[Rfam]
The family of this 99-nucleotide sequence from Barklya syringifolia is "Plastid-rps12 3UTR RNA". The source organism's lineage runs through Eukaryota, Streptophytina, Fabales, Cercidoideae and Barklya. Plastid rpl20 is a non-coding RNA (ncRNA) recognised in plastids. It was found in the three prime untranslated region (3UTR) of rps12 gene, its 3UTR location sugest a role in transcript maduration. By type it is a cis-regulatory element. The sequence is in the family's curated seed alignment. The family's consensus secondary structure was predicted with LocARNA.
RNA sequence: UUUCCGUUGGUGCAAAUCCAAUCACCUCCAUUUGAAAUUUAAGAUGAGAAAGACUUCCCCAUUGGUAGCAAAUUAUUAUCCAUUAAGCAGGGGAAAUAC
Number, nucleotide and partner (000 for none) at each position: 001u000002u000003u000004c000005c000006g000007u021008u020009g019010g018011u000012g000013c000014a000015a000016a000017u000018c010019c009020a008021a007022u000023c000024a000025c000026c000027u000028c000029c000030a000031u000032u000033u000034g000035a000036a000037a000038u000039u000040u000041a000042a000043g000044a000045u000046g000047a000048g000049a000050a000051a000052g000053a000054c000055u000056u000057c092058c091059c090060c000061a083062u082063u000064g080065g079066u078067a077068g076069c000070a000071a000072a000073u000074u000075a000076u068077u067078a066079u065080c064081c000082a062083u061084u000085a000086a000087g000088c000089a000090g059091g058092g057093g000094a000095a000096a000097u000098a000099c000